[Rfam]
RNA sequence: GCCGAGCUCCGUAGCGCGGGCUUGUAACCCUAGUGGGGGGCAUCAAGGUGGUGUGGAUGUUUGGUGCGGACUCUUGGGGCCUAGGUCUGUGGUUGUGUCUUAGCUGGCCUGCCCGUUCCAAGUUGGUAGUGGCCCGUGGGGACUUAGGCGAAAGCUUUGGGCCUCCCUGGACCUGAAGUGGCAGGAACGGCGUGAGGCUGGCUUCACAGAGCAGCGAUCACUGCCCGCUUCCAACGGUGGAAGGAUAACAGGCUGCUGCACCACUGGCCCCGCUGCAGGCCCAGGGUCCUACUGAACAGACCACCAUCUUU
Number, nucleotide and partner (000 for none) at each position: 001g041002c040003c039004g023005a022006g021007c020008u019009c018010c000011g000012u000013a000014g000015c000016g000017c000018g009019g008020g007021c006022u005023u004024g000025u000026a000027a000028c038029c037030c036031u035032a000033g000034u000035g031036g030037g029038g028039g003040g002041c001042a000043u000044c000045a310046a309047g308048g307049u306050g305051g304052u303053g302054u000055g301056g000057a000058u298059g297060u000061u296062u295063g000064g292065u291066g290067c000068g288069g287070a000071c000072u000073c286074u285075u284076g000077g282078g000079g280080c279081c278082u277083a000084g269085g268086u267087c266088u000089g264090u263091g000092g262093u000094u000095g261096u260097g259098u000099c258100u000101u000102a000103g000104c000105u255106g254107g253108c252109c251110u250111g249112c000113c244114c243115g000116u242117u241118c240119c239120a238121a000122g235123u234124u233125g232126g231127u000128a229129g228130u227131g000132g172133c000134c170135c169136g168137u000138g166139g165140g164141g163142a000143c161144u160145u159146a158147g156148g155149c154150g000151a000152a000153a000154g149155c148156u147157u000158u146159g145160g144161g143162c000163c141164u140165c139166c138167c000168u136169g135170g134171a000172c132173c178174u000175g000176a000177a000178g173179u000180g225181g224182c223183a222184g221185g000186a000187a000188c000189g218190g000191c216192g215193u214194g000195a000196g000197g000198c209199u208200g207201g000202c000203u000204u000205c000206a000207c200208a199209g198210a000211g000212c000213a000214g193215c192216g191217a000218u189219c000220a000221c184222u183223g182224c181225c180226c000227g130228c129229u128230u000231c126232c125233a124234a123235c122236g000237g000238u120239g119240g118241a117242a116243g114244g113245a000246u000247a000248a000249c111250a110251g109252g108253c107254u106255g105256c000257u000258g099259c097260a096261c095262c092263a090264c089265u000266g087267g086268c085269c084270c000271c000272g000273c000274u000275g000276c000277a082278g081279g080280c079281c000282c077283a000284g075285g074286g073287u069288c068289c000290u066291a065292c064293u000294g000295a062296a061297c059298a058299g000300a000301c055302c053303a052304c051305c050306a049307u048308c047309u046310u045311u000
A member of the RNA family "Plant signal recognition particle RNA" from Panicum hallii, 311 nucleotides long. By type it is a non-coding RNA gene. A search with the family's covariance model found it, with a score of 214 bits.